[Rfam]
RNA: glmS glucosamine-6-phosphate activated ribozyme aptamer
RNA sequence: GUUUCUCUUCUAGCGCCAUGUACCUGUGAGGACGACCAUACACAGGUUAACGAGGAAAAGGGUUAUCGAAAAUUCGGCGGACGCCCUUUCGUACUUCCCAGUGCGAGAUAUGCCGGCAAAUAUGCAGGUGACUGCAAAACAAAUACGGUAUAAUGGGACAAU
Numbered sequence: 001g002u003u004u005c006u007c008u009u010c011u012a013g014c015g016c017c018a019u020g021u022a023c024c025u026g027u028g029a030g031g032a033c034g035a036c037c038a039u040a041c042a043c044a045g046g047u048u049a050a051c052g053a054g055g056a057a058a059a060g061g062g063u064u065a066u067c068g069a070a071a072a073u074u075c076g077g078c079g080g081a082c083g084c085c086c087u088u089u090c091g092u093a094c095u096u097c098c099c100a101g102u103g104c105g106a107g108a109u110a111u112g113c114c115g116g117c118a119a120a121u122a123u124g125c126a127g128g129u130g131a132c133u134g135c136a137a138a139a140c141a142a143a144u145a146c147g148g149u150a151u152a153a154u155g156g157g158a159c160a161a162u
Stems, first nucleotide, its partner, number of pairs: 022047007030039001057089005066077004090105006109152007123136005